[Rfam]
RNA sequence: GGAUAGUACUUUUUGCUAUCCCCGACUAAUAACACAAUGACACGUAUGAUAACUUUUUCAUGUAUCAUUGUGUUAUUGGUCGGGGAUAGCAAAACAGUGCUAUUC
Number, nucleotide and partner (000 for none) at each position: 001g000002g104003a103004u102005a101006g000007u000008a000009c000010u000011u094012u093013u092014u091015g090016c089017u088018a087019u086020c000021c084022c083023c082024g081025a080026c079027u078028a077029a076030u075031a074032a073033c072034a071035c070036a069037a068038u067039g066040a065041c000042a063043c062044g061045u060046a000047u000048g057049a056050u000051a000052a000053c000054u000055u000056u049057u048058u000059c000060a045061u044062g043063u042064a000065u040066c039067a038068u037069u036070g035071u034072g033073u032074u031075a030076u029077u028078g027079g026080u025081c024082g023083g022084g021085g000086a019087u018088a017089g016090c015091a014092a013093a012094a011095c000096a000097g000098u000099g000100c000101u005102a004103u003104u002105c000
RNA: MIR6274 microRNA precursor family